[Rfam]
RNA: BsrG
RNA sequence: GCAAUAGAGUAGGAUUUCUCAAGGGUGAUUGGCACAUUCCCAUCAGAAAGGGGGUGAUGCUGAUUGACAGUAUUUGAAACUUUUAUGAUUAUGUUUGGAUUUGGUAGCCUUAUCCUUGCAGUUCUAUCAUUUAAUCAAAAAAAAUAAUCCACCCUAAAGUUAGCUGCCCAAGGUGGAUUACUUACACUUAAUGCUGAUUCCCUUGCAUCGGAACCUGCUAUUGCUUGACCGUUCGGUGUUACCAGCACCCACG
Numbered sequence: 001g002c003a004a005u006a007g008a009g010u011a012g013g014a015u016u017u018c019u020c021a022a023g024g025g026u027g028a029u030u031g032g033c034a035c036a037u038u039c040c041c042a043u044c045a046g047a048a049a050g051g052g053g054g055u056g057a058u059g060c061u062g063a064u065u066g067a068c069a070g071u072a073u074u075u076g077a078a079a080c081u082u083u084u085a086u087g088a089u090u091a092u093g094u095u096u097g098g099a100u101u102u103g104g105u106a107g108c109c110u111u112a113u114c115c116u117u118g119c120a121g122u123u124c125u126a127u128c129a130u131u132u133a134a135u136c137a138a139a140a141a142a143a144a145u146a147a148u149c150c151a152c153c154c155u156a157a158a159g160u161u162a163g164c165u166g167c168c169c170a171a172g173g174u175g176g177a178u179u180a181c182u183u184a185c186a187c188u189u190a191a192u193g194c195u196g197a198u199u200c201c202c203u204u205g206c207a208u209c210g211g212a213a214c215c216u217g218c219u220a221u222u223g224c225u226u227g228a229c230c231g232u233u234c235g236g237u238g239u240u241a242c243c244a245g246c247a248c249c250c251a252c253g
Base pairs, nucleotide, nucleotide: 001224002223003222004221005220007218009216016197017196018159019158022155023154024153025152027149028148029147030146035056036055038053039052040051041050066128067127069125070124072122079094080093104119105118106117170189171188198213199212200211201210230253231252232251235249236248237247238246239245240244